A member of the RNA family "EcpR1" from Consotaella salsifontis, 113 nucleotides long. The family's consensus secondary structure was predicted with WAR. About the family: Perviously named SmelC291, SmrC10, or Sra33. According to its overproduction phenotype it was renamed Elongated Cell Phenotype RNA1. Induced by stress,EcpR1 negatively regulates cell cycle master regulatory genes dnaA and gcrA at post-transcriptional level by base pairing between its strongly conserved GC-rich loop and the target mRNAs. It's regulation is hfq-independent but requires RNase E to regulate dnaA.
RNA sequence: UACCCCAUGGAAUGCUCAGGUCCGCCGCAUCUCCUGGGUCCCGUGGGGCGGCCGGUCGGCAUCCGAAUACGCGGUUUCCUCGUACCGCAUCGGAAUCGCCGACCGGCCACUGA
Numbered sequence: 001u002a003c004c005c006c007a008u009g010g011a012a013u014g015c016u017c018a019g020g021u022c023c024g025c026c027g028c029a030u031c032u033c034c035u036g037g038g039u040c041c042c043g044u045g046g047g048g049c050g051g052c053c054g055g056u057c058g059g060c061a062u063c064c065g066a067a068u069a070c071g072c073g074g075u076u077u078c079c080u081c082g083u084a085c086c087g088c089a090u091c092g093g094a095a096u097c098g099c100c101g102a103c104c105g106g107c108c109a110c111u112g113a
Stems, first nucleotide, its partner, number of pairs: 003048008015038006050108011
A reference for the family is del Val et al. (2007), "Identification of differentially expressed small non-coding RNAs in the legume endosymbiont Sinorhizobium meliloti by comparative genomics", Mol Microbiol. The match comes from Rfam's covariance-model search (97 bits). The organism belongs to Consotaella, within Bacteria.